[Rfam]
RNA: Alphaproteobacteria transfer-messenger RNA
RNA sequence: CCAUUUGCAACUGCGGAUACCGCAACCUAUAUAACCAAUGUCCCCUCGGGGACUAUGAACAUAAACGCGCUCGUAAUAAGCGGAUCGGACCCGGGGGCGGUACCCGGCGCCUCCACCAACAUCCUUCAUUUGGGGACCUUGGGGGCGAAAUAGGAUCGACGGACGUCUAAAGGGGUUAGCUUUGUUUCGGUGAGAUACCACCGUUAUCGGUUCAUUUAAGCUAGUUGCAAAUGACAACAAAGCUCCGGCAAUGGCUCUGGCUGCGUAAGCAGUUCGGGUCGCCGAAACUAAGUCCUUACGCUUAGCAGCGUUUGGCGGGGUUCGCAGGCACCUGGCAACAGAAGCCUGCACU
Numbered sequence: 001c002c003a004u005u006u007g008c009a010a011c012u013g014c015g016g017a018u019a020c021c022g023c024a025a026c027c028u029a030u031a032u033a034a035c036c037a038a039u040g041u042c043c044c045c046u047c048g049g050g051g052a053c054u055a056u057g058a059a060c061a062u063a064a065a066c067g068c069g070c071u072c073g074u075a076a077u078a079a080g081c082g083g084a085u086c087g088g089a090c091c092c093g094g095g096g097g098c099g100g101u102a103c104c105c106g107g108c109g110c111c112u113c114c115a116c117c118a119a120c121a122u123c124c125u126u127c128a129u130u131u132g133g134g135g136a137c138c139u140u141g142g143g144g145g146c147g148a149a150a151u152a153g154g155a156u157c158g159a160c161g162g163a164c165g166u167c168u169a170a171a172g173g174g175g176u177u178a179g180c181u182u183u184g185u186u187u188c189g190g191u192g193a194g195a196u197a198c199c200a201c202c203g204u205u206a207u208c209g210g211u212u213c214a215u216u217u218a219a220g221c222u223a224g225u226u227g228c229a230a231a232u233g234a235c236a237a238c239a240a241a242g243c244u245c246c247g248g249c250a251a252u253g254g255c256u257c258u259g260g261c262u263g264c265g266u267a268a269g270c271a272g273u274u275c276g277g278g279u280c281g282c283c284g285a286a287a288c289u290a291a292g293u294c295c296u297u298a299c300g301c302u303u304a305g306c307a308g309c310g311u312u313u314g315g316c317g318g319g320g321u322u323c324g325c326a327g328g329c330a331c332c333u334g335g336c337a338a339c340a341g342a343a344g345c346c347u348g349c350a351c352u
Stems, first nucleotide, its partner, number of pairs: 040053005057187005067180002069176004081165002085162003091107005108147007188203004194213002197211003318333004324349006